[Rfam]
RNA sequence: GGAGGCGCUUCCGGCCUGGUGACCGGCCCGGUCUUCAACACCGUGGAACGGCAGACACUGUCGUUGGCGGGUUCGAUUCCCGUUCGCCUCC
Numbered sequence: 001g002g003a004g005g006c007g008c009u010u011c012c013g014g015c016c017u018g019g020u021g022a023c024c025g026g027c028c029c030g031g032u033c034u035u036c037a038a039c040a041c042c043g044u045g046g047a048a049c050g051g052c053a054g055a056c057a058c059u060g061u062c063g064u065u066g067g068c069g070g071g072u073u074c075g076a077u078u079c080c081c082g083u084u085c086g087c088c089u090c091c
Stems, first nucleotide, its partner, number of pairs: 001091007011026004016021001027045001029043004047065005068082004
RNA: Selenocysteine transfer RNA
Organism: Prauserella isguenensis